[Rfam]
RNA sequence: GUUUUUGGUCGUAAGGCGCGACCAACGGAAUCAAAAGAAAGCCUGCCGAGA
Numbered sequence: 001g002u003u004u005u006u007g008g009u010c011g012u013a014a015g016g017c018g019c020g021a022c023c024a025a026c027g028g029a030a031u032c033a034a035a036a037g038a039a040a041g042c043c044u045g046c047c048g049a050g051a
Stems, first nucleotide, its partner, number of pairs: 006024006014044004

Shown here is a 51-nucleotide RNA sequence, a member of the family "6A RNA". The base pairs follow the family's consensus structure, which is taken from published work. By type it is a small RNA.